S10-Clostridia ribosomal protein leader: a 102-nucleotide RNA sequence from Litchfieldia salsa. A search with the family's covariance model found it, with a score of 40 bits.
RNA sequence: UGACUGCGAUGAAGUGAAAGGUUGCUGACACACCCGGCCGCUUUGCCAUGGCGAGUGUGAGGAAAUUUUCACGGAGAAGGUCUAUUUUAAAAAAGUAGGCGA
Numbered sequence: 001u002g003a004c005u006g007c008g009a010u011g012a013a014g015u016g017a018a019a020g021g022u023u024g025c026u027g028a029c030a031c032a033c034c035c036g037g038c039c040g041c042u043u044u045g046c047c048a049u050g051g052c053g054a055g056u057g058u059g060a061g062g063a064a065a066u067u068u069u070c071a072c073g074g075a076g077a078a079g080g081u082c083u084a085u086u087u088u089a090a091a092a093a094a095g096u097a098g099g100c101g102a
Stems, first nucleotide, its partner, number of pairs: 014072003018069004025061002028058004081102002086099003